[Rfam]
RNA sequence: AUAUAAAGGGGCAAACUUAUCGAAAGAUAGGGACGCAAAGCCAAGGGUCUUCGUUUUUACAAACAUGACAGCCGGUUGCAUCAG
Numbered sequence: 001a002u003a004u005a006a007a008g009g010g011g012c013a014a015a016c017u018u019a020u021c022g023a024a025a026g027a028u029a030g031g032g033a034c035g036c037a038a039a040g041c042c043a044a045g046g047g048u049c050u051u052c053g054u055u056u057u058u059a060c061a062a063a064c065a066u067g068a069c070a071g072c073c074g075g076u077u078g079c080a081u082c083a084g
Stems, first nucleotide, its partner, number of pairs: 003081002011036002016031006034071001039077004045073002047069003
Rfam assigns this 84-nucleotide RNA from Anaerocolumna aminovalerica to the family "c-di-GMP-I-GGC riboswitch aptamer". Its Rfam clan is "c-di-GMP_I riboswitch clan". It scores 62 bits against the family's covariance model. On this family, see Kulshina et al., Nat Struct Mol Biol 2009: "Recognition of the bacterial second messenger cyclic diguanylate by its cognate riboswitch". The family has 40 seed sequences and 1,298 matches in Rfam 15.1.